Record summary:
A member of the RNA family "Histone 3' UTR stem-loop" from Pseudolycoriella hygida, 46 nucleotides long. The match comes from Rfam's covariance-model search (42 bits). The organism belongs to Pseudolycoriella, within Eukaryota.
RNA sequence: CAAACGGCCCUUUUCAGGGCCACCAAAAAUAUCCAUAAAAACGAUA
Numbered sequence: 001c002a003a004a005c006g007g008c009c010c011u012u013u014u015c016a017g018g019g020c021c022a023c024c025a026a027a028a029a030u031a032u033c034c035a036u037a038a039a040a041a042c043g044a045u046a
Stems, first nucleotide, its partner, number of pairs: 006021006
About this RNA:
Rfam describes the family as follows. The mRNAs of metazoan histone genes lack a poly-A tail. 3' end processing occurs at a site between a highly conserved stem-loop (modelled by this family) and a purine rich region around 20 nts downstream (the histone downstream element, or HDE). Rfam classes the family as a cis-regulatory element.